[Rfam]
RNA sequence: UGAUGACCGUUCCUCCUCCUGCCUGCAGGCCUGGCACUAGGAUUUCAGGUCAAUCGUAAAUUGAAAGUGAUUUUCUUCACUCAGAGAAUAUCAGGAUAAUGGGAUUAUCUGUUUGUUCUCCGAAAACAAACAAAAAAAC
Numbered sequence: 001u002g003a004u005g006a007c008c009g010u011u012c013c014u015c016c017u018c019c020u021g022c023c024u025g026c027a028g029g030c031c032u033g034g035c036a037c038u039a040g041g042a043u044u045u046c047a048g049g050u051c052a053a054u055c056g057u058a059a060a061u062u063g064a065a066a067g068u069g070a071u072u073u074u075c076u077u078c079a080c081u082c083a084g085a086g087a088a089u090a091u092c093a094g095g096a097u098a099a100u101g102g103g104a105u106u107a108u109c110u111g112u113u114u115g116u117u118c119u120c121c122g123a124a125a126a127c128a129a130a131c132a133a134a135a136a137a138a139c
Base pairs, nucleotide, nucleotide: 001056002055003054004052005051006050007049008048014042015041016040017039020036021035022034023033071135072134073133074132081123082122084120085119086118087117088116089115090114094110095109096108097107098106
Dot-bracket structure: ((((((((.....((((..((((.........))))..)))).....))))).)))..............((((......((.(((((((...(((((.......)))))...))))))).))........))))....

Overview
Small nucleolar RNA SNORA79: a 139-nucleotide RNA from Myotis myotis. NCBI's taxonomy places the organism under Eukaryota, Bilateria, Craniata, Chiroptera, Myotis. A search with the family's covariance model found it, with a score of 105 bits. A reference for the family is Schattner et al. (2006), "A computational screen for mammalian pseudouridylation guide H/ACA RNAs", RNA. Rfam 15.1 lists 944 matches to the family in 375 species. Pairs were carried over by alignment from the consensus structure, which was predicted with RNAalifold.